[Rfam]
RNA sequence: GGUUGUAUCGAUUCGAUAGGGAUACUCAUCAAAUUAAAUUGAAAACCGAGAAGGCUUCUUUUGCUCAUGGCGGGCCACAUAAAUUGCAUCUGCAACUAAAUGCUUCGGCAUCGGUGGAUUACAAAGGCGGGAAACUCUCAAAUCUUUUAAACUCGGAGUUUUCAUCACAUCGUCGUGCAACCCUUUUU
Numbered sequence: 001g002g003u004u005g006u007a008u009c010g011a012u013u014c015g016a017u018a019g020g021g022a023u024a025c026u027c028a029u030c031a032a033a034u035u036a037a038a039u040u041g042a043a044a045a046c047c048g049a050g051a052a053g054g055c056u057u058c059u060u061u062u063g064c065u066c067a068u069g070g071c072g073g074g075c076c077a078c079a080u081a082a083a084u085u086g087c088a089u090c091u092g093c094a095a096c097u098a099a100a101u102g103c104u105u106c107g108g109c110a111u112c113g114g115u116g117g118a119u120u121a122c123a124a125a126g127g128c129g130g131g132a133a134a135c136u137c138u139c140a141a142a143u144c145u146u147u148u149a150a151a152c153u154c155g156g157a158g159u160u161u162u163c164a165u166c167a168c169a170u171c172g173u174c175g176u177g178c179a180a181c182c183c184u185u186u187u188u
Base pairs, nucleotide, nucleotide: 054135056133060131061130062129063128064127065126068123069122075117076116077115078114080098101110102109103108
This 188-nucleotide RNA from Prevotellaceae bacterium KH2P17 belongs to the Rfam family "Bacteroidales-1 6S-Bacteroidales RNA suggested". By type it is a small RNA. Taxonomically the source falls in Prevotellaceae (Bacteria, Bacteroidota, Bacteroidia, Bacteroidales). Bacteroidales-1 was first reported in a comparative genomics-based approach of genome and metagenome sequences from Weinberg et al. 2010 In a high-resolution transcriptome map study of Bacteroides thetaiotaomicron, Ryan et al. 2020 report this sRNA as 6S RNA homologue of Bacteroides, in the study they obtain evidence of small product RNAs (pRNAs) related to 6S function. The match comes from Rfam's covariance-model search (116 bits).